RNA sequence: GCGGAUGGCUGGAUGAUCGCGGGUGGUAACACACGAGGAAAGUCCGGGCUCCAUGAAGACAGGGUGCCGGGUAAUGCCCGGCCGGGGCAACCCGAGGGAAAGCGCCACAGAGAAGAGACUGCCUUGGUGUCAAGGGUUCGCCUGCGACGCACACCCAAGGCGAUGGUGAAACGGUGGGGUAAGAGCCCACCACGGACCGGGCAACCGGGACGGUAUGGCAAGCCCCACCCGGAGCAAUGCCGAAUAGGGGCCUCGCGCGGGCUGGUCCUUGAUCGCAAGGUCGGGGAUACCGCCGCAGGGACACUUCAGCCCAGAGGCCCGGGUUGGCAGCUUGAUCGCCUUGGUAACAAGAGCGACAGAGGAAUGGUCAUCCAGAGGGGGGAACCCCUUGGACAGAACCCGGCUUACAGGCCAUCCGCAUAG
Numbered sequence: 001g002c003g004g005a006u007g008g009c010u011g012g013a014u015g016a017u018c019g020c021g022g023g024u025g026g027u028a029a030c031a032c033a034c035g036a037g038g039a040a041a042g043u044c045c046g047g048g049c050u051c052c053a054u055g056a057a058g059a060c061a062g063g064g065u066g067c068c069g070g071g072u073a074a075u076g077c078c079c080g081g082c083c084g085g086g087g088c089a090a091c092c093c094g095a096g097g098g099a100a101a102g103c104g105c106c107a108c109a110g111a112g113a114a115g116a117g118a119c120u121g122c123c124u125u126g127g128u129g130u131c132a133a134g135g136g137u138u139c140g141c142c143u144g145c146g147a148c149g150c151a152c153a154c155c156c157a158a159g160g161c162g163a164u165g166g167u168g169a170a171a172c173g174g175u176g177g178g179g180u181a182a183g184a185g186c187c188c189a190c191c192a193c194g195g196a197c198c199g200g201g202c203a204a205c206c207g208g209g210a211c212g213g214u215a216u217g218g219c220a221a222g223c224c225c226c227a228c229c230c231g232g233a234g235c236a237a238u239g240c241c242g243a244a245u246a247g248g249g250g251c252c253u254c255g256c257g258c259g260g261g262c263u264g265g266u267c268c269u270u271g272a273u274c275g276c277a278a279g280g281u282c283g284g285g286g287a288u289a290c291c292g293c294c295g296c297a298g299g300g301a302c303a304c305u306u307c308a309g310c311c312c313a314g315a316g317g318c319c320c321g322g323g324u325u326g327g328c329a330g331c332u333u334g335a336u337c338g339c340c341u342u343g344g345u346a347a348c349a350a351g352a353g354c355g356a357c358a359g360a361g362g363a364a365u366g367g368u369c370a371u372c373c374a375g376a377g378g379g380g381g382g383a384a385c386c387c388c389u390u391g392g393a394c395a396g397a398a399c400c401c402g403g404c405u406u407a408c409a410g411g412c413c414a415u416c417c418g419c420a421u422a423g
Base pairs, nucleotide, nucleotide: 001419002418003417004416005415006414007413008412009411010410011408012372013371014370015369016368017367018366020035021034023032024031025030040406041405042404044403045402046401047400048399049234050233051232052231059266062230063229064228065227066226067081068080069079070078071077082096083094084093085092086091097225098224102223103222104219105218106217119165121161122160123159124158125157126156127155173191174190175189176188177187178186192214193212194211197208198207199206200205238329239328240327241326248320249319250318251317252316253315336356337355338354339353340351341350342349343348

Shown here is a 423-nucleotide RNA from Pseudorhodobacter sp., a member of the family "Bacterial RNase P class A". It scores 270 bits against the family's covariance model. The family's RNA type in Rfam is ribozyme. The source organism's lineage runs through Bacteria, Pseudomonadati, Alphaproteobacteria, Paracoccaceae and Pseudorhodobacter. The base pairs follow the family's consensus structure, which is taken from published work.